[Rfam]
RNA sequence: AUUCGAUAAGGGCAAACUUGUCGAAAGACAAAGACGCAAAGCUGCGGGCCUAAGGACAGAUUCUAUGACUAUGGCAGCCGGUCCGCCGAG
Numbered sequence: 001a002u003u004c005g006a007u008a009a010g011g012g013c014a015a016a017c018u019u020g021u022c023g024a025a026a027g028a029c030a031a032a033g034a035c036g037c038a039a040a041g042c043u044g045c046g047g048g049c050c051u052a053a054g055g056a057c058a059g060a061u062u063c064u065a066u067g068a069c070u071a072u073g074g075c076a077g078c079c080g081g082u083c084c085g086c087c088g089a090g
Stems, first nucleotide, its partner, number of pairs: 012037002018031005041083001043081001045080003048075003055069001057067002
RNA: c-di-GMP-I riboswitch aptamer
Organism: Insulibacter thermoxylanivorax